A member of the RNA family "Nuclear RNase P" from Nematostella vectensis, 310 nucleotides long. Its Rfam clan is "RNaseP clan". The match comes from Rfam's covariance-model search (149 bits). Taxonomically the source falls in Nematostella (Eukaryota, Eumetazoa, Anthozoa, Edwardsiidae). Rfam's curators write: Ribonuclease P (RNase P) is a ubiquitous endoribonuclease, found in archaea, bacteria and eukarya as well as chloroplasts and mitochondria. Its best characterised activity is the generation of mature 5'-ends of tRNAs by cleaving the 5'-leader elements of precursor-tRNAs.

RNA sequence: UUGGGCGGAAUGCUCGCUCAAGGGGACACAUUCGAGGGACUUCACAGUCUCUGCCAAUACCCCAUGGGAAGGUCUGAGAUAAAGGCCGAUGAGUUCUAGACGGACGCCCUCGUAACAGAGGUGUGGGAAACUAGAAAUAGGCUUGACGAGUUGCAUAUUCGGCAGAAGAUGGUCUGUACUCCUGGAGUAUAGCCCGGAUGCCAGCGGCUGCGUCAUAGUUGGAAAAGCCCACGGCCGGCUAAGUGAGUGCAAUCAGCGAGGUGGCUUUCUAAGCGAAGUCAUAACUCAAUUCAGACUACUCUUCGCCCAA
Numbered sequence: 001u002u003g004g005g006c007g008g009a010a011u012g013c014u015c016g017c018u019c020a021a022g023g024g025g026a027c028a029c030a031u032u033c034g035a036g037g038g039a040c041u042u043c044a045c046a047g048u049c050u051c052u053g054c055c056a057a058u059a060c061c062c063c064a065u066g067g068g069a070a071g072g073u074c075u076g077a078g079a080u081a082a083a084g085g086c087c088g089a090u091g092a093g094u095u096c097u098a099g100a101c102g103g104a105c106g107c108c109c110u111c112g113u114a115a116c117a118g119a120g121g122u123g124u125g126g127g128a129a130a131c132u133a134g135a136a137a138u139a140g141g142c143u144u145g146a147c148g149a150g151u152u153g154c155a156u157a158u159u160c161g162g163c164a165g166a167a168g169a170u171g172g173u174c175u176g177u178a179c180u181c182c183u184g185g186a187g188u189a190u191a192g193c194c195c196g197g198a199u200g201c202c203a204g205c206g207g208c209u210g211c212g213u214c215a216u217a218g219u220u221g222g223a224a225a226a227g228c229c230c231a232c233g234g235c236c237g238g239c240u241a242a243g244u245g246a247g248u249g250c251a252a253u254c255a256g257c258g259a260g261g262u263g264g265c266u267u268u269c270u271a272a273g274c275g276a277a278g279u280c281a282u283a284a285c286u287c288a289a290u291u292c293a294g295a296c297u298a299c300u301c302u303u304c305g306c307c308c309a310a
Stems, first nucleotide, its partner, number of pairs: 001310004008304003013260006021065001023063003036051006074294005084236004093105004108121004123232005142218002261282007